[Rfam]
RNA sequence: AAUUUCGUUACGGGAGAGAUCAGUUCCGGUGCCAUGGUGGACAAUUCGCCGGGCAGAAGAUGACUGACGCCGAAGGAGCAACCGCCCCGGAAUCUCUCAGGCAGAAGAACCGUGACAGAAAC
Numbered sequence: 001a002a003u004u005u006c007g008u009u010a011c012g013g014g015a016g017a018g019a020u021c022a023g024u025u026c027c028g029g030u031g032c033c034a035u036g037g038u039g040g041a042c043a044a045u046u047c048g049c050c051g052g053g054c055a056g057a058a059g060a061u062g063a064c065u066g067a068c069g070c071c072g073a074a075g076g077a078g079c080a081a082c083c084g085c086c087c088c089g090g091a092a093u094c095u096c097u098c099a100g101g102c103a104g105a106a107g108a109a110c111c112g113u114g115a116c117a118g119a120a121a122c
Base pairs, nucleotide, nucleotide: 007116008115009114010113011112012111013110020067021066022065023064024063025062069102070101071100072098073097076096077095078094082090083089
Shown here is a 122-nucleotide sequence from Oecophyllibacter saccharovorans, a member of the family "Glycine riboswitch aptamer". Rfam links the family to the GO term glycine biosynthetic process. Rfam's curators write: This family represents the bacterial glycine riboswitch. Glycine riboswitches usually consist of two metabolite-binding aptamers domains with similar structures in tandem. The organism belongs to Oecophyllibacter, within Bacteria.